[Rfam]
RNA sequence: AAUUGAAUAAUUUUCUUGAGUAUAAAAGGUCCUAAGGAAGUAAAAUCUAAGGCAUUUAUACCUGAAUCUAACAAAAGAUUCACAGGGUGAUACUUGAAAAAGUAUGAUCUCCACGUUUUGGGAAGGAAAAUCAGUAGAGUUUAU
Numbered sequence: 001a002a003u004u005g006a007a008u009a010a011u012u013u014u015c016u017u018g019a020g021u022a023u024a025a026a027a028g029g030u031c032c033u034a035a036g037g038a039a040g041u042a043a044a045a046u047c048u049a050a051g052g053c054a055u056u057u058a059u060a061c062c063u064g065a066a067u068c069u070a071a072c073a074a075a076a077g078a079u080u081c082a083c084a085g086g087g088u089g090a091u092a093c094u095u096g097a098a099a100a101a102g103u104a105u106g107a108u109c110u111c112c113a114c115g116u117u118u119u120g121g122g123a124a125g126g127a128a129a130a131u132c133a134g135u136a137g138a139g140u141u142u143a144u
Base pairs, nucleotide, nucleotide: 003138004137006135011130012129013128014127015126017125020061021060022059023058024057025056026055031052032051036048037047038046063082064081065080066079067078068077069076085110086109087108088107090105091104092103093102094101095100111121112120
Molybdenum/Tungsten riboswitch aptamer (Moco RNA motif): a 144-nucleotide RNA from Turicibacter sp. HGF1. A search with the family's covariance model found it, with a score of 57 bits. Taxonomically the source falls in Turicibacter (Bacteria, Bacillati, Erysipelotrichales, Turicibacteraceae).